[Rfam]
RNA sequence: UGUCCUUGGCCUGGGUAGAGUGGCACCUAGUUGGUGGUGCCCAUAUUAGCCAGGGACAAAGCAACCCUUUGUUCAUCCCAGCUUGACUUUUGAUCUGUACCUAUACCUGGUUCAUGCCUUAGACACAUGG
Number, nucleotide and partner (000 for none) at each position: 001u058002g057003u056004c055005c054006u053007u052008g051009g000010c000011c049012u048013g047014g046015g000016u000017a000018g000019a000020g000021u000022g041023g040024c039025a038026c037027c036028u000029a000030g000031u000032u000033g000034g000035u000036g027037g026038u025039g024040c023041c022042c000043a000044u000045a000046u014047u013048a012049g011050c000051c008052a007053g006054g005055g004056a003057c002058a001059a000060a000061g000062c000063a000064a000065c000066c000067c000068u000069u000070u125071g124072u123073u122074c000075a120076u000077c000078c000079c000080a000081g000082c000083u000084u000085g118086a000087c116088u000089u000090u000091u114092g113093a112094u000095c110096u109097g108098u000099a000100c000101c000102u000103a000104u000105a000106c000107c000108u097109g096110g095111u000112u093113c092114a091115u000116g087117c000118c085119u000120u075121a000122g073123a072124c071125a070126c000127a000128u000129g000130g000
Small nucleolar RNA SNORA48: a 130-nucleotide RNA sequence from Pan troglodytes.
A reference for the family is Ofengand and Bakin (1997), "Mapping to nucleotide resolution of pseudouridine residues in large subunit ribosomal RNAs from representative eukaryotes, prokaryotes, archaebacteria, mitochondria and chloroplasts", J Mol Biol.
From the family's description: The snoRNA ACA 48 has been identified to guide pseudouridylation of the residue U3797 in the 28S rRNA subunit.
Its family is annotated with RNA processing and nucleolus in the Gene Ontology.
The family's RNA type in Rfam is H/ACA-box small nucleolar RNA.
Taxonomically the source falls in Pan (Eukaryota, Bilateria, Tetrapoda, Boreoeutheria).